[Rfam]
RNA: Lysine riboswitch aptamer
Organism: Thermobrachium celere
Nucleotides: 168
Stems, first nucleotide, its partner, number of pairs: 007162005016081006022074003032065006039058001085111003088107008112138005119131004140153005
Number, partner (000 for none) and nucleotide at each position: 001000a002000c003000c004000u005000u006000g007162u008161g009160u010159a011158g012000a013000g014000a015000u016081g017080c018079c019078u020077a021076a022074g023073u024072c025000a026000a027000g028000a029000g030000u031000a032065c033064u034063a035062a036061g037060g038000a039058g040000g041000a042000g043000c044000u045000u046000g047000g048000c049000a050000g051000g052000c053000u054000a055000u056000g057000a058039u059000g060037c061036u062035u063034u064033a065032g066000g067000a068000a069000a070000g071000g072024g073023g074022c075000u076021u077020u078019a079018g080017g081016c082000c083000g084000a085111a086110g087109g088107g089106a090105a091104u092103a093102g094101u095100u096000g097000c098000c099000a100095a101094a102093c103092u104091a105090u106089u107088u108000g109087c110086c111085u112138g113137g114136c115135u116134g117000u118000u119131u120130g121129c122128a123000u124000a125000a126000u127000a128122u129121g130120c131119a132000c133000u134116c135115a136114g137113c138112u139000g140153u141152c142151a143150c144149c145000u146000u147000a148000a149144g150143g151142u152141g153140g154000a155000g156000a157000g158011c159010u160009a161008c162007a163000a164000a165000g166000g167000u168000u